[Rfam]
RNA: U12 minor spliceosomal RNA
Organism: Tripterygium wilfordii
RNA sequence: CUGCCUUAAACUAAUGAGUAUGGAAAACAAAACGAGUGGUGAGAGUUGCUCACAGCACCAAGUCAUGUGCGAAUGAAUUUGUGGAGGGGUUAUAGGCUGGCCGAGUGGAGACGCUACUAACUUUGCAGAACUUACUCUGUGCAGGCCUCCC
Number, nucleotide and partner (000 for none) at each position: 001c000002u000003g000004c023005c022006u000007u020008a019009a000010a000011c000012u000013a000014a000015u000016g000017a000018g000019u008020a007021u000022g005023g004024a000025a000026a000027a000028c000029a000030a000031a000032a000033c000034g051035a050036g049037u048038g047039g046040u000041g000042a000043g000044a000045g000046u039047u038048g037049c036050u035051c034052a000053c000054a000055g070056c069057a068058c067059c000060a000061a000062g000063u000064c000065a000066u000067g058068u057069g056070c055071g000072a000073a000074u000075g000076a000077a000078u000079u000080u000081g000082u000083g000084g000085a000086g000087g000088g151089g150090u000091u000092a000093u000094a148095g147096g146097c145098u144099g000100g142101c000102c000103g137104a136105g000106u000107g000108g133109a132110g131111a000112c000113g000114c128115u127116a000117c125118u000119a000120a000121c000122u000123u000124u000125g117126c000127a115128g114129a000130a000131c110132u109133u108134a000135c000136u104137c103138u000139g000140u000141g000142c100143a000144g098145g097146c096147c095148u094149c000150c089151c088